[Rfam]
RNA: Archaeal large subunit ribosomal RNA, nucleotides 562 to 631
RNA sequence: GAUAAGGCAUGAAAGCGACGAAGCUACUUAGGUAGUGGAGCAGUGUUUUAUCGUGCGUUUCGAAAAAUGG
Numbered sequence: 001g002a003u004a005a006g007g008c009a010u011g012a013a014a015g016c017g018a019c020g021a022a023g024c025u026a027c028u029u030a031g032g033u034a035g036u037g038g039a040g041c042a043g044u045g046u047u048u049u050a051u052c053g054u055g056c057g058u059u060u061c062g063a064a065a066a067a068u069g070g
Stems, first nucleotide, its partner, number of pairs: 001052010015041002023036005056069003